[Rfam]
RNA sequence: CCUUGACAACUACAUGAUGUAGUUGACAGUUGCCAAGACAAGGAGUGUAACAUG
Numbered sequence: 001c002c003u004u005g006a007c008a009a010c011u012a013c014a015u016g017a018u019g020u021a022g023u024u025g026a027c028a029g030u031u032g033c034c035a036a037g038a039c040a041a042g043g044a045g046u047g048u049a050a051c052a053u054g
Stems, first nucleotide, its partner, number of pairs: 002042004007025005
RNA: Mu-gpT-DE RNA